[Rfam]
RNA sequence: GGAAGGAAUCGUUCCCCGGUGGGGCGGCCGGUCUUCAAAACCGGCAGGGCCUGUCAGACAGGCUUGGGUAGGUUCGACUCCUGCUUCCUUCC
Numbered sequence: 001g002g003a004a005g006g007a008a009u010c011g012u013u014c015c016c017c018g019g020u021g022g023g024g025c026g027g028c029c030g031g032u033c034u035u036c037a038a039a040a041c042c043g044g045c046a047g048g049g050c051c052u053g054u055c056a057g058a059c060a061g062g063c064u065u066g067g068g069u070a071g072g073u074u075c076g077a078c079u080c081c082u083g084c085u086u087c088c089u090u091c092c
Stems, first nucleotide, its partner, number of pairs: 001092008010026003014023003027045006047065005069083004
Rfam assigns this 92-nucleotide sequence from Azonexus hydrophilus to the family "Selenocysteine transfer RNA". The family's consensus secondary structure is taken from published work.